[Rfam]
RNA sequence: CUAUAUUAAUAGCAAACCAUUGGAAACGAUGGGACGCAAAGCUAUAGGGCCUUUAAUGUGGCAGCCAGUUACCAAA
Numbered sequence: 001c002u003a004u005a006u007u008a009a010u011a012g013c014a015a016a017c018c019a020u021u022g023g024a025a026a027c028g029a030u031g032g033g034a035c036g037c038a039a040a041g042c043u044a045u046a047g048g049g050c051c052u053u054u055a056a057u058g059u060g061g062c063a064g065c066c067a068g069u070u071a072c073c074a075a076a
Stems, first nucleotide, its partner, number of pairs: 012037002017032006040070004047066002049062003